RNA: Small nucleolar RNA psi28S-2876
RNA sequence: CAAUUGGCCAGCAACGAUGGUGCGCAGUUCGAGCAGCGACUGUGUUCUUAUAACGCUUGGCUAUAAUAAACAUCUAUCCUAUCCGUAGCGUCACAAUGUGUAAUUGGCCGACAUUUGGCGUAUGAACUGAAGAAACAUUUCA
Numbered sequence: 001c002a003a004u005u006g007g008c009c010a011g012c013a014a015c016g017a018u019g020g021u022g023c024g025c026a027g028u029u030c031g032a033g034c035a036g037c038g039a040c041u042g043u044g045u046u047c048u049u050a051u052a053a054c055g056c057u058u059g060g061c062u063a064u065a066a067u068a069a070a071c072a073u074c075u076a077u078c079c080u081a082u083c084c085g086u087a088g089c090g091u092c093a094c095a096a097u098g099u100g101u102a103a104u105u106g107g108c109c110g111a112c113a114u115u116u117g118g119c120g121u122a123u124g125a126a127c128u129g130a131a132g133a134a135a136c137a138u139u140u141c142a
Stems, first nucleotide, its partner, number of pairs: 005063006011056002024043005090136002097129002103123002105120001107119005